[Rfam]
RNA sequence: GGUCAUGAGUGUCAGCGACAAGCCCCGGCUCGCUGGCCGGCAACCCUCCUUCGCGGUGGGGUGCCCCGGGUGAGGACCGGGCCACGCCCGACCGGCGUGCGCAAGCGCGAGCG
Numbered sequence: 001g002g003u004c005a006u007g008a009g010u011g012u013c014a015g016c017g018a019c020a021a022g023c024c025c026c027g028g029c030u031c032g033c034u035g036g037c038c039g040g041c042a043a044c045c046c047u048c049c050u051u052c053g054c055g056g057u058g059g060g061g062u063g064c065c066c067c068g069g070g071u072g073a074g075g076a077c078c079g080g081g082c083c084a085c086g087c088c089c090g091a092c093c094g095g096c097g098u099g100c101g102c103a104a105g106c107g108c109g110a111g112c113g
Stems, first nucleotide, its partner, number of pairs: 001078004009038001011037006021030002039065003044061003048056002081102002083099006
The record is a 113-nucleotide RNA sequence from Terracoccus luteus, which matches "SAM (S-adenosyl methionine) riboswitch aptamer" in Rfam. The match comes from Rfam's covariance-model search (96 bits). Taxonomically the source falls in Terracoccus (Bacteria, Bacillati, Micrococcales, Intrasporangiaceae). For this family Rfam cites "The aptamer core of SAM-IV riboswitches mimics the ligand-binding site of SAM-I riboswitches" (Weinberg et al., RNA, 2008).